[Rfam]
RNA: Rhodo-rpoB RNA
RNA sequence: GGUUCGGGAGCGGCCGGUGGGACGGCACGCAGGAAUGGAACCUCACCCCUUCAUUCGUGAGCGGCGCGCAGCCGGGGCCCGACGGCCUGCGCA
Numbered sequence: 001g002g003u004u005c006g007g008g009a010g011c012g013g014c015c016g017g018u019g020g021g022a023c024g025g026c027a028c029g030c031a032g033g034a035a036u037g038g039a040a041c042c043u044c045a046c047c048c049c050u051u052c053a054u055u056c057g058u059g060a061g062c063g064g065c066g067c068g069c070a071g072c073c074g075g076g077g078c079c080c081g082a083c084g085g086c087c088u089g090c091g092c093a
Stems, first nucleotide, its partner, number of pairs: 001042005010030003013026004066092004071086004